[Rfam]
RNA sequence: AAGUGAGAUGAUGGCAUACCAUCUUUCGGGACUGAGUUGAUGUGAAGAGUUUUUCUGUUUUGCUGAUCACUU
Numbered sequence: 001a002a003g004u005g006a007g008a009u010g011a012u013g014g015c016a017u018a019c020c021a022u023c024u025u026u027c028g029g030g031a032c033u034g035a036g037u038u039g040a041u042g043u044g045a046a047g048a049g050u051u052u053u054u055c056u057g058u059u060u061u062g063c064u065g066a067u068c069a070c071u072u
Stems, first nucleotide, its partner, number of pairs: 001072006
Annotation:
The family of this 72-nucleotide RNA sequence is "Small nucleolar RNA SNORD2". It is annotated as a C/D-box small nucleolar RNA. The literature on the family includes a 2004 paper in Gene by Zhou et al., "Identification of a novel box C/D snoRNA from mouse nucleolar cDNA library".